The family of this 135-nucleotide RNA sequence from Conger conger is "Small nucleolar RNA SNORA27". Taxonomically the source falls in Conger (Eukaryota, Actinopterygii, Teleostei, Congridae). ACA27 is a member of the H/ACA class of snoRNA that guide the sites of modification of uridines to pseudouridines. Its family is annotated with nucleolus and RNA processing in the Gene Ontology. Rfam classes the family as an H/ACA-box small nucleolar RNA. Its Rfam clan is "SNORA27 clan".
Nucleotides: 135
Base pairs, nucleotide, nucleotide: 036063038061039060040059044055045054046053047052073128074127075126076125077124078123086113089109090108091107092106093105094104
Number, partner (000 for none) and nucleotide at each position: 001000g002000u003000c004000c005000c006000c007000a008000c009000u010000u011000u012000c013000a014000c015000u016000u017000u018000g019000c020000c021000a022000c023000a024000a025000g026000g027000g028000a029000a030000a031000u032000a033000u034000a035000g036063u037000u038061u039060c040059c041000u042000u043000g044055a045054u046053g047052g048000u049000c050000a051000u052047u053046c054045a055044u056000g057000u058000g059040g060039g061038g062000u063036a064000g065000a066000a067000u068000a069000u070000c071000c072000a073128u074127c075126c076125u077124u078123u079000c080000a081000c082000a083000g084000c085000u086113u087000a088000g089109g090108c091107a092106a093105a094104c095000a096000g097000a098000a099000c100000c101000u102000g103000g104094g105093u106092u107091u108090g109089c110000a111000c112000u113086g114000a115000g116000g117000c118000c119000u120000g121000u122000c123078a124077a125076a126075g127074g128073a129000g130000a131000c132000a133000u134000g135000u